[Rfam]
RNA sequence: GGUUGGUUUUGAUUUGGAGACAGGGAUGAGACAGAGCAUGGGAUGGGGCCAUCAACAAAGUGGAGGGACUAGCUUGCGAGGCAGAAAGAAGGUGCCAGUGCCGGUGCCUCCCCGGUGAAACGAUGAUGGGAGUGUUGUUGCUCCCUCCCCUGCACUGCCUCUUCCCUGGCUCCGAUCCCCCACCGUUGC
Numbered sequence: 001g002g003u004u005g006g007u008u009u010u011g012a013u014u015u016g017g018a019g020a021c022a023g024g025g026a027u028g029a030g031a032c033a034g035a036g037c038a039u040g041g042g043a044u045g046g047g048g049c050c051a052u053c054a055a056c057a058a059a060g061u062g063g064a065g066g067g068a069c070u071a072g073c074u075u076g077c078g079a080g081g082c083a084g085a086a087a088g089a090a091g092g093u094g095c096c097a098g099u100g101c102c103g104g105u106g107c108c109u110c111c112c113c114g115g116u117g118a119a120a121c122g123a124u125g126a127u128g129g130g131a132g133u134g135u136u137g138u139u140g141c142u143c144c145c146u147c148c149c150c151u152g153c154a155c156u157g158c159c160u161c162u163u164c165c166c167u168g169g170c171u172c173c174g175a176u177c178c179c180c181c182a183c184c185g186u187u188g189c
Stems, first nucleotide, its partner, number of pairs: 017172003021168006029160002032157003036153003040149001042148001046143004
RNA: MIR408 microRNA precursor family